[Rfam]
RNA sequence: CAUCUGGUGCUUUGUGGAAGACUAGUGAUUUUGUUGUUGUGACCUGAGACUUAACAACAAAUCCCAGUCUGCCUCACAGCUCCAGAUA
Number, nucleotide and partner (000 for none) at each position: 001c000002a087003u086004c085005u084006g083007g082008u000009g000010c079011u078012u000013u076014g075015u000016g073017g072018a000019a070020g069021a068022c067023u066024a000025g065026u000027g063028a062029u061030u060031u059032u000033g058034u057035u056036g055037u054038u053039g000040u000041g000042a000043c000044c000045u000046g000047a000048g000049a000050c000051u000052u000053a038054a037055c036056a035057a034058c033059a031060a030061a029062u028063c027064c000065c025066a023067g022068u021069c020070u019071g000072c017073c016074u000075c014076a013077c000078a011079g010080c000081u000082c007083c006084a005085g004086a003087u002088a000
RNA: mir-7 microRNA precursor family